[Rfam]
RNA sequence: GUGCUUGGUUCCUAGUAGGUGCUCAGUAAGUGUUUGUGACAUAAUUCGUUUAUUGAGCACCUCCUAUCAAUCAAGCAC
Numbered sequence: 001g002u003g004c005u006u007g008g009u010u011c012c013u014a015g016u017a018g019g020u021g022c023u024c025a026g027u028a029a030g031u032g033u034u035u036g037u038g039a040c041a042u043a044a045u046u047c048g049u050u051u052a053u054u055g056a057g058c059a060c061c062u063c064c065u066a067u068c069a070a071u072c073a074a075g076c077a078c
Stems, first nucleotide, its partner, number of pairs: 001078010013066003017062004022057001024055009035044001
A member of the RNA family "mir-325 microRNA precursor family" from Cricetulus griseus, 78 nucleotides long. The sequence is in the family's curated seed alignment.